[Rfam]
RNA: ZMP/ZTP riboswitch aptamer (pfl RNA motif)
RNA sequence: GCGCGUUCGCGCAACUGGCGCUACGAGAUGGACACCCAUCGGGGAGCGCGAACCGGGUCGCGGCGUCAAUCACCGUUCGCCGCAGCCUCGCACCGCCGCGCGCCUGGGCAUUGCCU
Numbered sequence: 001g002c003g004c005g006u007u008c009g010c011g012c013a014a015c016u017g018g019c020g021c022u023a024c025g026a027g028a029u030g031g032a033c034a035c036c037c038a039u040c041g042g043g044g045a046g047c048g049c050g051a052a053c054c055g056g057g058u059c060g061c062g063g064c065g066u067c068a069a070u071c072a073c074c075g076u077u078c079g080c081c082g083c084a085g086c087c088u089c090g091c092a093c094c095g096c097c098g099c100g101c102g103c104c105u106g107g108g109c110a111u112u113g114c115c116u
Base pairs, nucleotide, nucleotide: 005053006052007051008050009049010048011047012046015043016042017104018103019102020101021100028039029038030037031036095109096108097107